[Rfam]
RNA sequence: AAGAUUCUUCGGGGCAGGGUGUGAUUCCCAACCGGCGGUAAAGUCCGCGAACUGGUCAUUUGAAGAAUUUCUGGUCAGAGAUAUCUGAACAGAUGUUAUCAAUGUGAUGAUCAGCCGAUCUGGUGAGAUUCCGGAACCGACAGUAAAGUCUGGAUGAGAGAAGGAUGAU
Numbered sequence: 001a002a003g004a005u006u007c008u009u010c011g012g013g014g015c016a017g018g019g020u021g022u023g024a025u026u027c028c029c030a031a032c033c034g035g036c037g038g039u040a041a042a043g044u045c046c047g048c049g050a051a052c053u054g055g056u057c058a059u060u061u062g063a064a065g066a067a068u069u070u071c072u073g074g075u076c077a078g079a080g081a082u083a084u085c086u087g088a089a090c091a092g093a094u095g096u097u098a099u100c101a102a103u104g105u106g107a108u109g110a111u112c113a114g115c116c117g118a119u120c121u122g123g124u125g126a127g128a129u130u131c132c133g134g135a136a137c138c139g140a141c142a143g144u145a146a147a148g149u150c151u152g153g154a155u156g157a158g159a160g161a162a163g164g165a166u167g168a169u
Base pairs, nucleotide, nucleotide: 004166005165006164007163008162009161010160017029018028019027031149032148033139034138035048036047037046038045043137044136052114053113054112055111056110057109058108059107060106119135120134121133122132123131141152142151143150